[Rfam]
RNA sequence: UGUGGAAGCUGCAAUAUCUGUGCGUGCAGUACAAGUAUCUGUCCGCCAUAGCAGCCUUCCUAUAGAAAUCUUGUGGAGAUCUCUGUCUGGCUCUGCAGAGUAUGGGCUUAGCCGGAUCGUUCCCCUCCAUACAUC
Numbered sequence: 001u002g003u004g005g006a007a008g009c010u011g012c013a014a015u016a017u018c019u020g021u022g023c024g025u026g027c028a029g030u031a032c033a034a035g036u037a038u039c040u041g042u043c044c045g046c047c048a049u050a051g052c053a054g055c056c057u058u059c060c061u062a063u064a065g066a067a068a069u070c071u072u073g074u075g076g077a078g079a080u081c082u083c084u085g086u087c088u089g090g091c092u093c094u095g096c097a098g099a100g101u102a103u104g105g106g107c108u109u110a111g112c113c114g115g116a117u118c119g120u121u122c123c124c125c126u127c128c129a130u131a132c133a134u135c
Stems, first nucleotide, its partner, number of pairs: 004060003008055005022046003026042002075128004083119001085117003089113004095107001

A member of the RNA family "Small Cajal body specific RNA 3" from Xenopus laevis, 135 nucleotides long. Gene Ontology terms of the family: Cajal body, RNA processing and nucleolus. Lineage of the source: Eukaryota > Bilateria > Vertebrata > Batrachia > Xenopus. Pairs were carried over by alignment from the consensus structure, which was predicted with RNAalifold. scaRNAs are a specific class of small nuclear RNAs which localise to the Cajal bodies and guide the modification of RNA polymerase II transcribed spliceosomal RNAs U1, U2, U4, U5 and U12. It is annotated as a small Cajal body RNA.